[Rfam]
RNA sequence: GCCAAGCCAUUUAACAAAGGCUUGUAACCUAUGUGGGGGCUUUAAGAUGGUUGGAGGUUGGCUCUUAGUAUUUGGUUGGGACUCUAAAGUUGUCUACUUGUUCGCCCAUUCCAAGAAGGGAGUUGGGCCUCGCAUUCUGGACGAAAGUCCAAAGUGUAAUGCUUUUAUACCAAAGGAAACUACGUGAGGCUGGCUUCACAGAGCAGCGUCACCUUCUACUCUCUUCGGUGGAUGGAUAACGUGCAAGUUCUUUAGAGCCCAAUGACACCAUGUACGAAGUUCAAAACUGGACAAACUUUCUUU
Numbered sequence: 001g002c003c004a005a006g007c008c009a010u011u012u013a014a015c016a017a018a019g020g021c022u023u024g025u026a027a028c029c030u031a032u033g034u035g036g037g038g039g040c041u042u043u044a045a046g047a048u049g050g051u052u053g054g055a056g057g058u059u060g061g062c063u064c065u066u067a068g069u070a071u072u073u074g075g076u077u078g079g080g081a082c083u084c085u086a087a088a089g090u091u092g093u094c095u096a097c098u099u100g101u102u103c104g105c106c107c108a109u110u111c112c113a114a115g116a117a118g119g120g121a122g123u124u125g126g127g128c129c130u131c132g133c134a135u136u137c138u139g140g141a142c143g144a145a146a147g148u149c150c151a152a153a154g155u156g157u158a159a160u161g162c163u164u165u166u167a168u169a170c171c172a173a174a175g176g177a178a179a180c181u182a183c184g185u186g187a188g189g190c191u192g193g194c195u196u197c198a199c200a201g202a203g204c205a206g207c208g209u210c211a212c213c214u215u216c217u218a219c220u221c222u223c224u225u226c227g228g229u230g231g232a233u234g235g236a237u238a239a240c241g242u243g244c245a246a247g248u249u250c251u252u253u254a255g256a257g258c259c260c261a262a263u264g265a266c267a268c269c270a271u272g273u274a275c276g277a278a279g280u281u282c283a284a285a286a287c288u289g290g291a292c293a294a295a296c297u298u299u300c301u302u303u
Stems, first nucleotide, its partner, number of pairs: 001040003004023005010017002028037003044302004049297003052293002057288001058284003061280003065277002068275004073270004079260002082257008092248001097247005103241002106235002110232004115226009125164004130159001132157005138151005173215004182209004190201003

Plant signal recognition particle RNA: a 303-nucleotide RNA sequence from Cucumis melo. The family's consensus secondary structure is taken from published work. A search with the family's covariance model found it, with a score of 186 bits.